[Rfam]
RNA sequence: UUGGCUAUCAUGAUGAAAUAUUCCGGAUGUAAAAACAGUCUGAAAUGCGCAAACAUAACCCCCUGUUGAUUUCCGUUGCCUUCCUUCUGAUUAUAUGCCU
Numbered sequence: 001u002u003g004g005c006u007a008u009c010a011u012g013a014u015g016a017a018a019u020a021u022u023c024c025g026g027a028u029g030u031a032a033a034a035a036c037a038g039u040c041u042g043a044a045a046u047g048c049g050c051a052a053a054c055a056u057a058a059c060c061c062c063c064u065g066u067u068g069a070u071u072u073c074c075g076u077u078g079c080c081u082u083c084c085u086u087c088u089g090a091u092u093a094u095a096u097g098c099c100u
Stems, first nucleotide, its partner, number of pairs: 003099003024075004
Record summary:
The family of this 100-nucleotide RNA from Pyricularia oryzae is "Small nucleolar RNA Z13/snr52". Its family is annotated with RNA processing and nucleolus in the Gene Ontology. Rfam classes the family as a C/D-box small nucleolar RNA. The organism belongs to Pyricularia oryzae, within Eukaryota.